[Rfam]
Small Cajal body specific RNA 11: a 140-nucleotide RNA from Myotis davidii. Rfam 15.1 lists 853 matches to the family in 557 species. Rfam's curators write: scaRNAs are a specific class of small nuclear RNAs which localise to the Cajal bodies and guide the modification of RNA polymerase II transcribed spliceosomal RNAs U1, U2, U4, U5 and U12. ACA57 belongs to the H/ACA box class of guide RNAs as it has the predicted hairpin-hinge-hairpin-tail structure, conserved H/ACA-box motifs and is found associated with GAR1. ACA57 is predicted to guide the pseudouridylation of the U5 spliceosomal RNA at position U43. A search with the family's covariance model found it, with a score of 81 bits. Gene Ontology terms of the family: Cajal body, RNA processing and nucleolus. The family's consensus secondary structure was predicted with RNAalifold. For this family Rfam cites "Cajal body-specific small nuclear RNAs: a novel class of 2'-O-methylation and pseudouridylation guide RNAs" (Darzacq et al., EMBO J, 2002).
RNA sequence: UUGUCCUGGCCUAUGCUUUCUCUGCUCCCCUGUGCUCAGUUGUAAUGGGAGUCUAGCACAACACACAGCAAGCAGGUCUCUCUCAGUUUAGGAGGGCCUCCCUGAGGAUAGGGCUGGCUUUUAAAGGAUGAGAAACCUGG
Numbered sequence: 001u002u003g004u005c006c007u008g009g010c011c012u013a014u015g016c017u018u019u020c021u022c023u024g025c026u027c028c029c030c031u032g033u034g035c036u037c038a039g040u041u042g043u044a045a046u047g048g049g050a051g052u053c054u055a056g057c058a059c060a061a062c063a064c065a066c067a068g069c070a071a072g073c074a075g076g077u078c079u080c081u082c083u084c085a086g087u088u089u090a091g092g093a094g095g096g097c098c099u100c101c102c103u104g105a106g107g108a109u110a111g112g113g114c115u116g117g118c119u120u121u122u123a124a125a126g127g128a129u130g131a132g133a134a135a136c137c138u139g140g
Stems, first nucleotide, its partner, number of pairs: 002063003007058002010056001024052003028048002032046002079135001081133004087127003092122007100113005